Vault RNA: an 89-nucleotide sequence from Ornithorhynchus anatinus. Taxonomically the source falls in Ornithorhynchus (Eukaryota, Chordata, Sarcopterygii, Ornithorhynchidae). Rfam 15.1 lists 2,873 matches to the family in 431 species.
RNA sequence: UGGUCUACUUUAGCUCAGCGGUUACUUCUCACCCUUACACCCCAUCUUUUUGGAGGUUCGAACCCCUCGAGGGGCUUUUCGAUCUUUCG
Numbered sequence: 001u002g003g004u005c006u007a008c009u010u011u012a013g014c015u016c017a018g019c020g021g022u023u024a025c026u027u028c029u030c031a032c033c034c035u036u037a038c039a040c041c042c043c044a045u046c047u048u049u050u051u052g053g054a055g056g057u058u059c060g061a062a063c064c065c066c067u068c069g070a071g072g073g074g075c076u077u078u079u080c081g082a083u084c085u086u087u088c089g
Stems, first nucleotide, its partner, number of pairs: 002084004007079001014071003018068001020066002026062003